RNA sequence: UGGUGAUGUCUCCUUAUCGUUAUCAAUGGAGGUACUCGGUCAUGCUGUGGGUUUAACAAACCUUAGACGCAGGUCGUCAAGAGUGUGAUGUGAGGCGGGGUUAAAUGCCCU
Numbered sequence: 001u002g003g004u005g006a007u008g009u010c011u012c013c014u015u016a017u018c019g020u021u022a023u024c025a026a027u028g029g030a031g032g033u034a035c036u037c038g039g040u041c042a043u044g045c046u047g048u049g050g051g052u053u054u055a056a057c058a059a060a061c062c063u064u065a066g067a068c069g070c071a072g073g074u075c076g077u078c079a080a081g082a083g084u085g086u087g088a089u090g091u092g093a094g095g096c097g098g099g100g101u102u103a104a105a106u107g108c109c110c111u
Stems, first nucleotide, its partner, number of pairs: 001019004007034007035094004039089008049063005066078004097111005